[Rfam]
RNA sequence: GAGUUAGCGAUAUGUGGCGAGGUUAACCCGUGUGGGGGAGCCGUAGCGAAAGCGAGUCUGAAUAGGGCGAUUCAGUCGCGUGUCCUAGACCCGAAGCGAAGUGAUCUAUCCAUGGCCAGGCUGAAGCGUGUGUAAGAGCGCGUGGAGGGCCGAACCCACUUAGGUUGAAAACUGAGGGGAUGAGCUGUGGAUAGGGGUGAAAGGCCAAUCAAACUUCGUGAUAGCUGGUU
Dot-bracket structure: ....(((.((((((((((..((((..(((....)))..))))...((....))..((((.....))))......)))))))))))))..((.(...((((((...((((((((((((.((((...((((((......))))))....))))...(((.(((((........))))))))..).))))))))))).(((.....)))......))))))......).))..
Rfam assigns this 230-nucleotide part of an RNA from Leucobacter chromiisoli to the family "Bacterial large subunit ribosomal RNA". A search with the family's covariance model found it, with a score of 2755 bits. The family's consensus secondary structure is taken from published work. NCBI's taxonomy places the organism under Bacteria, Bacillati, Actinomycetes, Micrococcales, Leucobacter.